[Rfam]
RNA sequence: UUUUUUCAAUGAAAGAAAGCAAAUUUAAUCUAUUGCUUUGUUUCUUGACGACAGUGCAGAAAUAAAAGGCUUGAUCUUUGCUUUCUUCUUUUAAGGAAGAAGUAAAGAUUAAGCAGCGGCCAGACAACCGUAGGGAUGGUACCCACAGGUGAAGGGCUAAUUUAAUCCCCUUUUCGUCUACUGAUUCCAUCUCACAUUU
Dot-bracket structure: .(((((..(.(.(((((((((((.(((............................................)))..)))))))))))).)...)))))..................................(((((((.(.........((((((...........))))))............))))))))......
Numbered sequence: 001u002u003u004u005u006u007c008a009a010u011g012a013a014a015g016a017a018a019g020c021a022a023a024u025u026u027a028a029u030c031u032a033u034u035g036c037u038u039u040g041u042u043u044c045u046u047g048a049c050g051a052c053a054g055u056g057c058a059g060a061a062a063u064a065a066a067a068g069g070c071u072u073g074a075u076c077u078u079u080g081c082u083u084u085c086u087u088c089u090u091u092u093a094a095g096g097a098a099g100a101a102g103u104a105a106a107g108a109u110u111a112a113g114c115a116g117c118g119g120c121c122a123g124a125c126a127a128c129c130g131u132a133g134g135g136a137u138g139g140u141a142c143c144c145a146c147a148g149g150u151g152a153a154g155g156g157c158u159a160a161u162u163u164a165a166u167c168c169c170c171u172u173u174u175c176g177u178c179u180a181c182u183g184a185u186u187c188c189a190u191c192u193c194a195c196a197u198u199u
Stems, first nucleotide, its partner, number of pairs: 002098005009090001011088001013087011025074003133193007141186001151173006

Rfam assigns this 199-nucleotide sequence from Hibiscus syriacus to the family "small nucleolar RNA snoR143". A reference for the family is Chen and Wu (2009), "Mining small RNA sequencing data: a new approach to identify small nucleolar RNAs in Arabidopsis", Nucleic Acids Res. NCBI's taxonomy places the organism under Eukaryota, Magnoliopsida, eudicotyledons, Malvoideae, Hibiscus. The family's RNA type in Rfam is H/ACA-box small nucleolar RNA. Pairs were carried over by alignment from the consensus structure, which was predicted with RNAalifold. Rfam links the family to the GO terms nucleolus and RNA processing.